[Rfam]
RNA sequence: UUUACAGUCAGGCUCUGGCUAUAGUCCAGGUCUCAGUUGGACCUGGAUGUAACCAGAGCCUGACUGGCAA
Numbered sequence: 001u002u003u004a005c006a007g008u009c010a011g012g013c014u015c016u017g018g019c020u021a022u023a024g025u026c027c028a029g030g031u032c033u034c035a036g037u038u039g040g041a042c043c044u045g046g047a048u049g050u051a052a053c054c055a056g057a058g059c060c061u062g063a064c065u066g067g068c069a070a
Stems, first nucleotide, its partner, number of pairs: 007064003011060004016055003020051004026040004
Annotation: This 70-nucleotide RNA sequence from Microtus ochrogaster belongs to the Rfam family "mir-344 microRNA precursor family". Rfam links the family to the GO terms RISC complex and miRNA-mediated post-transcriptional gene silencing.